[Rfam]
The record is a 79-nucleotide RNA sequence from Macaca mulatta, which matches "mir-26 microRNA precursor family" in Rfam.
For this family Rfam cites "Identification of novel genes coding for small expressed RNAs" (Lagos-Quintana et al., Science, 2001).
The organism belongs to Macaca, within Eukaryota.
Rfam's curators put it in the seed alignment.
RNA sequence: CUGUGGCUGGAUUCAAGUAAUCCAGGAUAGGCUGUUUCCAUCUGUGAGGCCUAUUCUUGAUUACUUGUUUCUGGAGGCA
Numbered sequence: 001c002u003g004u005g006g007c008u009g010g011a012u013u014c015a016a017g018u019a020a021u022c023c024a025g026g027a028u029a030g031g032c033u034g035u036u037u038c039c040a041u042c043u044g045u046g047a048g049g050c051c052u053a054u055u056c057u058u059g060a061u062u063a064c065u066u067g068u069u070u071c072u073g074g075a076g077g078c079a
Stems, first nucleotide, its partner, number of pairs: 002079003007074005014067009024057010